[Rfam]
Shown here is a 62-nucleotide RNA from Saimiri boliviensis, a member of the family "U7 small nuclear RNA".
The organism belongs to Saimiri boliviensis, within Eukaryota.
A search with the family's covariance model found it, with a score of 36 bits.
From the family's description: Animal histone pre-mRNAs are spliced by a different mechanism than nuclear pre-mRNAs and self-splicing introns.

RNA sequence: UAGUGUUACAGCUUUUUUUAGAAUUUGUUUAGCACGUUUCCUGUUUUCACUGGAAGACUCCC
Numbered sequence: 001u002a003g004u005g006u007u008a009c010a011g012c013u014u015u016u017u018u019u020a021g022a023a024u025u026u027g028u029u030u031a032g033c034a035c036g037u038u039u040c041c042u043g044u045u046u047u048c049a050c051u052g053g054a055a056g057a058c059u060c061c062c
Stems, first nucleotide, its partner, number of pairs: 036058002038055004043050002